[Rfam]
RNA sequence: UGUGGAAAGAAGAAGCACCCGCUUCUCACCUGAUCGACGCAUUAGAGCAGUUGACAGGUAUUUACGUUAACGACUGUUCAUUUCGUGUGAUUUCGUAAAAGUGUGGGUGUUUCGCCCGCACUUUUUUAUUUUG
Numbered sequence: 001u002g003u004g005g006a007a008a009g010a011a012g013a014a015g016c017a018c019c020c021g022c023u024u025c026u027c028a029c030c031u032g033a034u035c036g037a038c039g040c041a042u043u044a045g046a047g048c049a050g051u052u053g054a055c056a057g058g059u060a061u062u063u064a065c066g067u068u069a070a071c072g073a074c075u076g077u078u079c080a081u082u083u084c085g086u087g088u089g090a091u092u093u094c095g096u097a098a099a100a101g102u103g104u105g106g107g108u109g110u111u112u113c114g115c116c117c118g119c120a121c122u123u124u125u126u127u128a129u130u131u132u133g
Base pairs, nucleotide, nucleotide: 011026012025013024014023015022016021028059029058030057036052037051038050039048040047102120103119104118105117106116107115108114109113
Source information
Ribosomal protein L20 leader: a 133-nucleotide RNA sequence from Mesobacillus persicus. Rfam classes the family as a cis-regulatory leader. Pairs were carried over by alignment from the consensus structure, which was predicted with CMfinder. About the family: This family is a putative r-protein leader autoregulatory structure found in B. subtilis and other low-GC Gram-positive bacteria. Lineage of the source: Bacteria > Bacillati > Bacillota > Bacilli > Mesobacillus.